Shown here is a 73-nucleotide sequence from Geotrypetes seraphini, a member of the family "Small nucleolar RNA Z40". The family's consensus secondary structure was predicted with PFOLD. Lineage of the source: Eukaryota > Metazoa > Deuterostomia > Dermophiidae > Geotrypetes. It is annotated as a C/D-box small nucleolar RNA. Gene Ontology terms of the family: nucleolus and RNA processing.
[Rfam]
RNA sequence: UUUGGUUGUGAUGAUUGGCAAAAUGUUCAACUGCUCUGAGAAGAGUGAAUGAAACGUGCCUUUCUGAAUCUAC
Number, nucleotide and partner (000 for none) at each position: 001u000002u072003u000004g070005g069006u068007u000008g000009u000010g000011a000012u000013g000014a000015u000016u000017g000018g000019c000020a000021a000022a000023a000024u000025g000026u000027u000028c000029a000030a000031c000032u000033g000034c000035u000036c000037u000038g000039a000040g000041a000042a000043g000044a000045g000046u000047g000048a000049a000050u000051g000052a000053a000054a000055c000056g000057u000058g000059c000060c000061u000062u000063u000064c000065u000066g000067a000068a006069u005070c004071u000072a002073c000